[Rfam]
RNA sequence: CACCAAAACUCUUUGUCAGGAUGCUUUUCCUUUUAGAUUUUACUUUUAGAACGGUAAAUUCUUGCUACAAAAGGGUCUGUUAAAGUUUUGGGAAAGUAAUAACUGUUCUUUCUACCCUCCUGAGUUUUUCAGGUAACAAGUAGAAUUCUAAAGAGGACAAUUUUUCGUUUUGAAAGAUAUACCUUUGAAGAUACCGAACAGCUAGGAUUUUAUGAGUUGAAUUUUGUUGUGUUCCCACUCUUCACGAGUGUUUAUACACCCAUAACAUUAUUCGUAGUAAAAAACCUAACAUUC
Numbered sequence: 001c002a003c004c005a006a007a008a009c010u011c012u013u014u015g016u017c018a019g020g021a022u023g024c025u026u027u028u029c030c031u032u033u034u035a036g037a038u039u040u041u042a043c044u045u046u047u048a049g050a051a052c053g054g055u056a057a058a059u060u061c062u063u064g065c066u067a068c069a070a071a072a073g074g075g076u077c078u079g080u081u082a083a084a085g086u087u088u089u090g091g092g093a094a095a096g097u098a099a100u101a102a103c104u105g106u107u108c109u110u111u112c113u114a115c116c117c118u119c120c121u122g123a124g125u126u127u128u129u130c131a132g133g134u135a136a137c138a139a140g141u142a143g144a145a146u147u148c149u150a151a152a153g154a155g156g157a158c159a160a161u162u163u164u165u166c167g168u169u170u171u172g173a174a175a176g177a178u179a180u181a182c183c184u185u186u187g188a189a190g191a192u193a194c195c196g197a198a199c200a201g202c203u204a205g206g207a208u209u210u211u212a213u214g215a216g217u218u219g220a221a222u223u224u225u226g227u228u229g230u231g232u233u234c235c236c237a238c239u240c241u242u243c244a245c246g247a248g249u250g251u252u253u254a255u256a257c258a259c260c261c262a263u264a265a266c267a268u269u270a271u272u273c274g275u276a277g278u279a280a281a282a283a284a285c286c287u288a289a290c291a292u293u294c
Base pairs, nucleotide, nucleotide: 003091004090005089006088007087019078020077021076022075024073025072026071027070028069031056103201104200105199106198107197108196111144112143113142114141115140119133120132121131122130123129152186153185154184155183156182160178161177162176163175165173166172167171203288204287205286206285208283209282210281211280218274219273220272221271222270225267226266227265228264231257232256
The record is a 294-nucleotide sequence from Huiozyma naganishii, which matches "Small nucleolar RNA snR191" in Rfam. The source organism's lineage runs through Eukaryota, Opisthokonta, Dikarya, saccharomyceta and Huiozyma naganishii. By type it is an H/ACA-box small nucleolar RNA.